[Rfam]
RNA sequence: GUUGUGCAGGGAUGAACCAUUUAUCUGGAGACGGUUGGAUGAAUCUUGCGGAUAUGGGACUGAGCACAGCU
Numbered sequence: 001g002u003u004g005u006g007c008a009g010g011g012a013u014g015a016a017c018c019a020u021u022u023a024u025c026u027g028g029a030g031a032c033g034g035u036u037g038g039a040u041g042a043a044u045c046u047u048g049c050g051g052a053u054a055u056g057g058g059a060c061u062g063a064g065c066a067c068a069g070c071u
Base pairs, nucleotide, nucleotide: 001070002069003068004067005066